[Rfam]
Nucleotides: 066
Stems, first nucleotide, its partner, number of pairs: 001064004006037005013028004042053002045050001
Number, partner (000 for none) and nucleotide at each position: 001064g002063u003062a004061c005000u006037a007036u008035g009034a010033u011000g012000g013028u014027u015026g016025c017000a018000u019000a020000g021000u022000u023000c024000a025016g026015c027014a028013g029000a030000u031000a032000u033010g034009u035008c036007a037006u038000g039000a040000a041000g042053a043052g044000a045050u046000u047000a048000a049000c050045a051000c052043c053042u054000g055000u056000c057000c058000g059000a060000u061004g062003u063002a064001u065000c066000u

The family of this 66-nucleotide RNA sequence from Heterocephalus glaber is "Small nucleolar RNA SNORD77". From the family's description: U77 belongs to the C/D family of snoRNAs. It is predicted to guide 2'O-ribose methylation of large 28S rRNA subunit at position A1521. The family's RNA type in Rfam is C/D-box small nucleolar RNA. The match comes from Rfam's covariance-model search (70 bits).